[Rfam]
RNA: mir-3389 microRNA precursor family
RNA sequence: CCAGUCGAAUCCGAUGUUCCACAGAAGCGGUCCUAGGACUGAACCCUGCGGAACACCGGACUCGACGCC
Numbered sequence: 001c002c003a004g005u006c007g008a009a010u011c012c013g014a015u016g017u018u019c020c021a022c023a024g025a026a027g028c029g030g031u032c033c034u035a036g037g038a039c040u041g042a043a044c045c046c047u048g049c050g051g052a053a054c055a056c057c058g059g060a061c062u063c064g065a066c067g068c069c
Stems, first nucleotide, its partner, number of pairs: 004066003007061001010059002013056001015055006024049001026047002029045003033041001